[Rfam]
RNA sequence: UGGGUCGGCUGGACGGUCGCGUCACGAGGGUUUUCUUUCGUGCCGAGGAACGUCCGGGCUCCACAGGGCAGGGCGGUGGGUAACACCCACCCGGAGUGAUCCGCGAGACAGUGCCACAGAAAACAGACCGCCGCGGGCAACCGCGGUAAGGGUGAAACGGUGGUGUAAGAGACCACCAGGGACCGCGGUGACGCGGUCUGCUCGGUAAACCUCGCCCGGAGCAAGGUCAGACAGGGGAUGUUGACGCGGCCCGCCGAGUCCUCGGGUAGACCGCUAGAACGGCAUGGCAACGUGUCGUCGAGAGAGAUGACCGUCCACGGGGCUCACGCCCCCGGACAGAACCCGGCGUACAGGCCGGCCCACUCG
Numbered sequence: 001u002g003g004g005u006c007g008g009c010u011g012g013a014c015g016g017u018c019g020c021g022u023c024a025c026g027a028g029g030g031u032u033u034u035c036u037u038u039c040g041u042g043c044c045g046a047g048g049a050a051c052g053u054c055c056g057g058g059c060u061c062c063a064c065a066g067g068g069c070a071g072g073g074c075g076g077u078g079g080g081u082a083a084c085a086c087c088c089a090c091c092c093g094g095a096g097u098g099a100u101c102c103g104c105g106a107g108a109c110a111g112u113g114c115c116a117c118a119g120a121a122a123a124c125a126g127a128c129c130g131c132c133g134c135g136g137g138c139a140a141c142c143g144c145g146g147u148a149a150g151g152g153u154g155a156a157a158c159g160g161u162g163g164u165g166u167a168a169g170a171g172a173c174c175a176c177c178a179g180g181g182a183c184c185g186c187g188g189u190g191a192c193g194c195g196g197u198c199u200g201c202u203c204g205g206u207a208a209a210c211c212u213c214g215c216c217c218g219g220a221g222c223a224a225g226g227u228c229a230g231a232c233a234g235g236g237g238a239u240g241u242u243g244a245c246g247c248g249g250c251c252c253g254c255c256g257a258g259u260c261c262u263c264g265g266g267u268a269g270a271c272c273g274c275u276a277g278a279a280c281g282g283c284a285u286g287g288c289a290a291c292g293u294g295u296c297g298u299c300g301a302g303a304g305a306g307a308u309g310a311c312c313g314u315c316c317a318c319g320g321g322g323c324u325c326a327c328g329c330c331c332c333c334g335g336a337c338a339g340a341a342c343c344c345g346g347c348g349u350a351c352a353g354g355c356c357g358g359c360c361c362a363c364u365c366g
Base pairs, nucleotide, nucleotide: 001362002361003360004359005358006357007356008355009354010353011351012315013314014313015312016311017310018309020045021044023042024041025040026039027038028037050349051348052347054346055345056344057343058342059221060220061219062218066252067251068250069249071217072216073215074214075213076090077089078088079087080086091105092103093102094101095100106212107211111210112209113206114205115204128151129150130147131146132145133144134143135142136141159177160176161175162174163173164172179201180199181198182197183196184195185194186193187192225272226271227270228269234263235262236261237260238259239258246254247253279298280297281296282295283294284293285292286291
Dot-bracket structure: ((((((((((((((((((.((.((((((........)))))).))....[[[.[[[[[((((...[[[[.((((((((((.....)))))(((((....)))).)((...(((((............(((((((((....)))))))..)).......((((((.......)))))).(((((((((....)))))))).)..)))..)))))))))))))...((((.....((((((......((.]]]]))...)))))).....))))......((((((((....))))))))..........)))))))..........................]]]]]]]].).))))))))))....